The family of this 71-nucleotide RNA sequence is "L4-Archaeoglobi ribosomal protein leades".
Nucleotides: 071
Base pairs, nucleotide, nucleotide: 001071002070003069004068005067006064007063008062009061010060011059012038013037014036015035020032021031022030023029040056041055042054043053044052045051046050
Number, partner (000 for none) and nucleotide at each position: 001071c002070u003069g004068a005067a006064g007063g008062a009061c010060a011059g012038u013037g014036g015035g016000u017000g018000g019000a020032c021031g022030u023029u024000c025000g026000u027000g028000c029023a030022a031021c032020g033000a034000g035015c036014c037013c038012g039000u040056u041055c042054c043053u044052g045051c046050a047000c048000u049000c050046u051045g052044c053043a054042g055041g056040a057000g058000a059011u060010u061009g062008u063007c064006c065000u066000g067005u068004u069003c070002a071001g